[Rfam]
RNA: Selenocysteine transfer RNA
RNA sequence: GGAGGUGUCAGGGUUCCUGGUGGGCCCCCCGGUCCUCAAAACCGGUGAAACCGAGUAUCUCGGUUUGGCAGGUUCGAUUCCUGUCCACCUCC
Number, nucleotide and partner (000 for none) at each position: 001g092002g091003a090004g089005g088006u087007g086008u000009c000010a000011g000012g027013g026014u000015u024016c023017c022018u000019g000020g000021u000022g017023g016024g015025c000026c013027c012028c000029c045030c044031g043032g042033u041034c000035c000036u000037c000038a000039a000040a000041a033042c032043c031044g030045g029046u000047g000048a066049a065050a064051c063052c062053g000054a000055g000056u000057a000058u000059c000060u000061c000062g052063g051064u050065u049066u048067g000068g000069c083070a082071g081072g080073u000074u000075c000076g000077a000078u000079u000080c072081c071082u070083g069084u000085c000086c007087a006088c005089c004090u003091c002092c001